Notes:
Rfam assigns this 79-nucleotide RNA sequence from Acer yangbiense to the family "Small nucleolar RNA Z199". Its family is annotated with nucleolus and RNA processing in the Gene Ontology. snoZ199 is a C/D box small nucleolar RNA, which acts as a methylation guide RNA for sites on 18S and 25S rRNA. Rice snoZ199 is reported to be homologous to Arabidopsis snoR13.
[Rfam]
Nucleotides: 079
Stems, first nucleotide, its partner, number of pairs: 001079002004077003039048003
Number, partner (000 for none) and nucleotide at each position: 001079a002078a003000a004077u005076c006075a007000a008000g009000u010000g011000a012000u013000g014000a015000a016000g017000a018000a019000a020000u021000a022000a023000c024000u025000g026000c027000a028000a029000c030000a031000a032000c033000a034000u035000g036000a037000g038000c039048g040047a041046u042000u043000c044000u045000u046041a047040u048039c049000g050000u051000g052000a053000u054000u055000a056000u057000u058000a059000g060000u061000a062000u063000u064000u065000a066000a067000g068000u069000c070000u071000c072000u073000g074000a075006u076005g077004a078002u079001u
It is annotated as a C/D-box small nucleolar RNA.